RNA sequence: ACUGUGGAGUGUUGUAUAAACGUUGGUAGCUACGGCAAAGACGGACACGACGAAGCAGUAA
Number, nucleotide and partner (000 for none) at each position: 001a059002c058003u057004g056005u055006g000007g000008a000009g048010u047011g046012u045013u044014g000015u000016a000017u000018a000019a000020a000021c043022g042023u041024u000025g000026g000027u000028a000029g036030c035031u000032a000033c000034g000035g030036c029037a000038a000039a000040g000041a023042c022043g021044g013045a012046c011047a010048c009049g000050a000051c000052g000053a000054a000055g005056c004057a003058g002059u001060a000061a000
A member of the RNA family "RAGATH-18 RNA", 61 nucleotides long. About the family: Actinobacteria, Firmicutes, Fusobacteria, Thermotogae (1 example). It is annotated as a small RNA. The family's consensus secondary structure is taken from published work.